This 80-nucleotide sequence from Medicago truncatula belongs to the Rfam family "Small nucleolar RNA Z266". Its family is annotated with RNA processing and nucleolus in the Gene Ontology. NCBI's taxonomy places the organism under Eukaryota, Spermatophyta, Gunneridae, Hologalegina, Medicago. It scores 67 bits against the family's covariance model. The literature on the family includes a 2003 paper in Nucleic Acids Res by Chen et al., "The high diversity of snoRNAs in plants: identification and comparative study of 120 snoRNA genes from Oryza sativa". It is annotated as a C/D-box small nucleolar RNA. Rfam 15.1 lists 719 matches to the family in 213 species.
RNA sequence: AAUAUGCAAGUAUGAUGAUUCAAUUAGAUGUAUGAAAGGAGAAAUCUAUUUUUUGAGGCAAACUGUCUGACUUGCUAAUU
Number, nucleotide and partner (000 for none) at each position: 001a080002a079003u078004a000005u000006g075007c074008a073009a072010g071011u000012a000013u000014g000015a000016u000017g000018a000019u000020u000021c000022a000023a000024u000025u000026a000027g000028a000029u000030g000031u000032a000033u000034g000035a000036a000037a000038g000039g000040a000041g000042a000043a000044a000045u000046c000047u000048a000049u000050u000051u000052u000053u000054u000055g000056a000057g000058g000059c000060a000061a000062a000063c000064u000065g000066u000067c000068u000069g000070a000071c010072u009073u008074g007075c006076u000077a000078a003079u002080u001